[Rfam]
RNA sequence: GAGUGUGUAGGAGGAAUCGAUUUAUUUCAGUGGAAACAAGGAAACACUUGAUUUAAUUCGAUUUUAAA
Numbered sequence: 001g002a003g004u005g006u007g008u009a010g011g012a013g014g015a016a017u018c019g020a021u022u023u024a025u026u027u028c029a030g031u032g033g034a035a036a037c038a039a040g041g042a043a044a045c046a047c048u049u050g051a052u053u054u055a056a057u058u059c060g061a062u063u064u065u066a067a068a
Stems, first nucleotide, its partner, number of pairs: 014064006022056002027051003030047003

Rfam assigns this 68-nucleotide RNA to the family "Cyano-1 RNA". The sequence is in the family's curated seed alignment.